[Rfam]
RNA sequence: GGGAAAGGUUCAAAGGCUAAAACCGCCCCAUCCUGUAGCAACGCCUUUAUGACCAACAUCCUAUUGG
Numbered sequence: 001g002g003g004a005a006a007g008g009u010u011c012a013a014a015g016g017c018u019a020a021a022a023c024c025g026c027c028c029c030a031u032c033c034u035g036u037a038g039c040a041a042c043g044c045c046u047u048u049a050u051g052a053c054c055a056a057c058a059u060c061c062u063a064u065u066g067g
Stems, first nucleotide, its partner, number of pairs: 012048006025039002029035001053067004
Shown here is a 67-nucleotide RNA from Oceanobacillus piezotolerans, a member of the family "Bacillaceae-1 RNA". By type it is a small RNA. The source organism's lineage runs through Bacteria, Bacillati, Bacilli, Bacillaceae and Oceanobacillus. Rfam 15.1 lists 5,721 matches to the family in 247 species.